[Rfam]
RNA sequence: GGGCGGGAGUGGGCUAAUACAAUACCCGAAAGGGAAAUAUGCCCAGCAGUUGGUACGACUGUGUUUUAGCUCCCGCCCGACCUUCC
Numbered sequence: 001g002g003g004c005g006g007g008a009g010u011g012g013g014c015u016a017a018u019a020c021a022a023u024a025c026c027c028g029a030a031a032g033g034g035a036a037a038u039a040u041g042c043c044c045a046g047c048a049g050u051u052g053g054u055a056c057g058a059c060u061g062u063g064u065u066u067u068a069g070c071u072c073c074c075g076c077c078c079g080a081c082c083u084u085c086c
Base pairs, nucleotide, nucleotide: 001078002077003076004075005074006073007072008071009070011044012043013042014041015039016038025034026033027032046062047061048060049059050058
RNA: sRNA-Xcc1